The family of this 69-nucleotide RNA from Actinosynnema pretiosum is "ASpks TB sRNA". It is annotated as an antisense RNA. The base pairs follow the family's consensus structure, which is taken from published work. Lineage of the source: Bacteria > Bacillati > Pseudonocardiales > Actinosynnema > Actinosynnema pretiosum.
[Rfam]
RNA sequence: CUUGACCGAGCCCAGCAGCACCGGUUCGGCCCGGUCCUGCCCGUAGGUGGCCAGGAUCGCCUGCGCCUC
Numbered sequence: 001c002u003u004g005a006c007c008g009a010g011c012c013c014a015g016c017a018g019c020a021c022c023g024g025u026u027c028g029g030c031c032c033g034g035u036c037c038u039g040c041c042c043g044u045a046g047g048u049g050g051c052c053a054g055g056a057u058c059g060c061c062u063g064c065g066c067c068u069c
Stems, first nucleotide, its partner, number of pairs: 014026003029064002032059002037054003041050003